[Rfam]
RNA sequence: AGUUGGUUCUUGUGCAGUGGUAUUUACAACUAAUUGAUCACAACAAGUCACAGAUUCCUUUGUUCCUUCUCCAUUCCCGCUGCUUCACUUGACCAGCCUUAA
Numbered sequence: 001a002g003u004u005g006g007u008u009c010u011u012g013u014g015c016a017g018u019g020g021u022a023u024u025u026a027c028a029a030c031u032a033a034u035u036g037a038u039c040a041c042a043a044c045a046a047g048u049c050a051c052a053g054a055u056u057c058c059u060u061u062g063u064u065c066c067u068u069c070u071c072c073a074u075u076c077c078c079g080c081u082g083c084u085u086c087a088c089u090u091g092a093c094c095a096g097c098c099u100u101a102a
Stems, first nucleotide, its partner, number of pairs: 002097007014086001016081005028064003032060002
About this RNA:
A member of the RNA family "Y RNA" from Prolemur simus, 102 nucleotides long. On this family, see Van Horn et al., RNA 1995: "Caenorhabditis elegans embryos contain only one major species of Ro RNP". Y RNAs are components of the Ro ribonucleoprotein particle (Ro RNP), in association with Ro60 and La proteins. The organism belongs to Prolemur, within Eukaryota.